[Rfam]
Nucleotides: 147
Base pairs, nucleotide, nucleotide: 011131012130013129014128018031019030020029032126033125034124035123036122037121042062063111064110065109071085072084073083074082088105089104090103091102
Number, partner (000 for none) and nucleotide at each position: 001000g002000u003000u004000u005000u006000u007000g008000u009000a010000a011131c012130g013129c014128u015000g016000a017000g018031u019030c020029c021000a022000a023000u024000g025000a026000u027000u028000u029020g030019g031018a032126g033125c034124g035123g036122a037121g038000g039000a040000a041000c042062c043000a044000a045000a046000u047000g048000g049000u050000g051000c052000a053000u054000g055000g056000u057000c058000a059000c060000u061000a062042g063111g064110g065109g066000u067000g068000a069000a070000u071085c072084u073083u074082u075000c076000a077000u078000g079000a080000u081000g082074a083073a084072a085071g086000u087000a088105g089104g090103g091102c092000u093000a094000c095000u096000c097000u098000c099000a100000a101000a102091g103090u104089c105088c106000g107000a108000a109065u110064c111063c112000g113000a114000c115000a116000g117000c118000u119000a120000a121037c122036u123035u124034c125033g126032u127000a128014a129013g130012c131011g132000u133000u134000u135000u136000g137000a138000g139000a140000g141000a142000g143000g144000g145000u146000g147000g